Shown here is a 66-nucleotide RNA sequence from Trypanosoma brucei, a member of the family "Trypanosomatid snoRNA TB10Cs2H1". The base pairs follow the family's consensus structure, which was predicted with WAR. Rfam links the family to the GO terms nucleolus and RNA processing. A reference for the family is Liang et al. (2005), "A genome-wide analysis of C/D and H/ACA-like small nucleolar RNAs in Trypanosoma brucei reveals a trypanosome-specific pattern of rRNA modification", RNA. Taxonomically the source falls in Trypanosoma brucei brucei (Eukaryota, Discoba, Euglenozoa, Trypanozoon).

[Rfam]
RNA sequence: AGGUGUUGUUAGUUGGGCCAGUGGCAAUUUUUAUUCAUUCGGCCCUCUCCCACAACUCCUAGAACC
Numbered sequence: 001a002g003g004u005g006u007u008g009u010u011a012g013u014u015g016g017g018c019c020a021g022u023g024g025c026a027a028u029u030u031u032u033a034u035u036c037a038u039u040c041g042g043c044c045c046u047c048u049c050c051c052a053c054a055a056c057u058c059c060u061a062g063a064a065c066c
Stems, first nucleotide, its partner, number of pairs: 002059002005056005015045003